[Rfam]
RNA sequence: CGAUGAGGUAGAGGUCGCGGUCGUUAUAAGUACGGUGCAGGAGGCAAGAAGAAUGCCUGAGAAUUCACCGGAAAGGAACCACCGCCGAAGCCUUCGCGCAUUCUUCGGCGUGCAGGCUGGGUCCGUUUUCGAAUAGGAACGGAACUGUCACGUUUGCUAUCCUGGCAAACGUGGUGUGCUAUCUUCAUG
Numbered sequence: 001c002g003a004u005g006a007g008g009u010a011g012a013g014g015u016c017g018c019g020g021u022c023g024u025u026a027u028a029a030g031u032a033c034g035g036u037g038c039a040g041g042a043g044g045c046a047a048g049a050a051g052a053a054u055g056c057c058u059g060a061g062a063a064u065u066c067a068c069c070g071g072a073a074a075g076g077a078a079c080c081a082c083c084g085c086c087g088a089a090g091c092c093u094u095c096g097c098g099c100a101u102u103c104u105u106c107g108g109c110g111u112g113c114a115g116g117c118u119g120g121g122u123c124c125g126u127u128u129u130c131g132a133a134u135a136g137g138a139a140c141g142g143a144a145c146u147g148u149c150a151c152g153u154u155u156g157c158u159a160u161c162c163u164g165g166c167a168a169a170c171g172u173g174g175u176g177u178g179c180u181a182u183c184u185u186c187a188u189g
Base pairs, nucleotide, nucleotide: 006184007183008182009181010180011179017085018084019083020082021081023079024078025077033070034069035068036067037066039064089118090117091116092115093114095112096111097110098109099108119146120145122143123142124141125140126139127138128137129136148174149173150172151171152170153169154168155167156166
The family of this 189-nucleotide RNA sequence from Aneurinibacillus migulanus is "Lysine riboswitch aptamer". From the family's description: Riboswitches are metabolite binding domains within certain messenger RNAs that serve as precision sensors for their corresponding targets. Allosteric rearrangement of mRNA structure is mediated by ligand binding, and this results in modulation of gene expression. This family includes riboswitches that sense lysine in a number of genes involved in lysine metabolism, including lysC. A search with the family's covariance model found it, with a score of 126 bits.